RNA sequence: GACAUUACGCUGUCGUGCAGGUGAGAAGCUGCCGUCAGGUUCGAGCCGAGCGAAGCGAGACUACAGCGCGCAGCGCUGGCCCGAAGGGCGAGGCCGCAGGCCGAGUCAUCCUGCACGACCCACCA
Numbered sequence: 001g002a003c004a005u006u007a008c009g010c011u012g013u014c015g016u017g018c019a020g021g022u023g024a025g026a027a028g029c030u031g032c033c034g035u036c037a038g039g040u041u042c043g044a045g046c047c048g049a050g051c052g053a054a055g056c057g058a059g060a061c062u063a064c065a066g067c068g069c070g071c072a073g074c075g076c077u078g079g080c081c082c083g084a085a086g087g088g089c090g091a092g093g094c095c096g097c098a099g100g101c102c103g104a105g106u107c108a109u110c111c112u113g114c115a116c117g118a119c120c121c122a123c124c125a
Base pairs, nucleotide, nucleotide: 015116016115017114018113019112020111021110022108033090034089035088036087040085041084042083043082047057048056064078065077066076067075068074069073
RNA: RtT RNA